[Rfam]
RNA: Selenocysteine insertion sequence 1
RNA sequence: UGCACUUUAGUGAAGACUACAUAGAAAACCUCUAAGGUAUGUGUAAGUCUGAUGUCAGGUGUA
Dot-bracket structure: (((((.........(((((((((.....(((...)))..)))))).))).........)))))